[Rfam]
Shown here is a 135-nucleotide RNA sequence from Saccharibacillus brassicae, a member of the family "Guanidine-I riboswitch aptamer". Pairs were carried over by alignment from the consensus structure. Gene Ontology term of the family: regulation of gene expression. The source organism's lineage runs through Bacteria, Bacillota, Bacilli, Caryophanales and Saccharibacillus.

RNA sequence: GCGAAUGUUUUCUAGGGUUCCGCGGCCGCAACGGCCGGACAGGUCCGAGAGAAGACCGCGACAGGAUCGCGUCGGCCGGCCAUAUGACCGUUUGACGAACCUGUCGCGCCACGGAGGGACAAAAGCCCGGGAGAU
Numbered sequence: 001g002c003g004a005a006u007g008u009u010u011u012c013u014a015g016g017g018u019u020c021c022g023c024g025g026c027c028g029c030a031a032c033g034g035c036c037g038g039a040c041a042g043g044u045c046c047g048a049g050a051g052a053a054g055a056c057c058g059c060g061a062c063a064g065g066a067u068c069g070c071g072u073c074g075g076c077c078g079g080c081c082a083u084a085u086g087a088c089c090g091u092u093u094g095a096c097g098a099a100c101c102u103g104u105c106g107c108g109c110c111a112c113g114g115a116g117g118g119a120c121a122a123a124a125g126c127c128c129g130g131g132a133g134a135u
Base pairs, nucleotide, nucleotide: 007056008055009054010053011052012051015046016045020043021042022040023037024036025035026034027033028032057108058107059106060105061104062103063102064101110130112133116128117127118126